[Rfam]
RNA sequence: AGCAGUGUCGCUAUGCGUCUCCGCCACAACCCCCAUGUGGAGCUACGGUACGAAACACGUGCGAGAG
Number, nucleotide and partner (000 for none) at each position: 001a000002g062003c061004a060005g058006u057007g056008u000009c000010g000011c000012u050013a049014u048015g000016c047017g046018u045019c000020u041021c040022c039023g038024c037025c000026a000027c000028a000029a000030c000031c000032c000033c000034c000035a000036u000037g024038u023039g022040g021041a020042g000043c000044u000045a018046c017047g016048g014049u013050a012051c000052g000053a000054a000055a000056c007057a006058c005059g000060u004061g003062c002063g000064a000065g000066a000067g000
Trypanosomatid snoRNA TB10Cs3H1: a 67-nucleotide sequence from Leptomonas pyrrhocoris. The literature on the family includes a 2005 paper in RNA by Liang et al., "A genome-wide analysis of C/D and H/ACA-like small nucleolar RNAs in Trypanosoma brucei reveals a trypanosome-specific pattern of rRNA modification". Pairs were carried over by alignment from the consensus structure, which was predicted with WAR. Its family is annotated with RNA processing and nucleolus in the Gene Ontology.